The record is an 84-nucleotide sequence from Esox lucius, which matches "mir-25 microRNA precursor family" in Rfam. Gene Ontology terms of the family: RISC complex and miRNA-mediated post-transcriptional gene silencing.
RNA sequence: AGCUUGUGUUGAGAGGCGGAGUCUUGGGCAAAUGCCAGACGUCUUAAGAGGCAUUGCACUCGUCUCGGUCUGACAGCACUGGCA
Numbered sequence: 001a002g003c004u005u006g007u008g009u010u011g012a013g014a015g016g017c018g019g020a021g022u023c024u025u026g027g028g029c030a031a032a033u034g035c036c037a038g039a040c041g042u043c044u045u046a047a048g049a050g051g052c053a054u055u056g057c058a059c060u061c062g063u064c065u066c067g068g069u070c071u072g073a074c075a076g077c078a079c080u081g082g083c084a
Stems, first nucleotide, its partner, number of pairs: 002083003006079004014071004019066003023062001028057004034052003038045001
Record summary:
Rfam 15.1 lists 311 matches to the family in 255 species. For this family Rfam cites "Small RNA expression and strain specificity in the rat" (Linsen et al., BMC Genomics, 2010).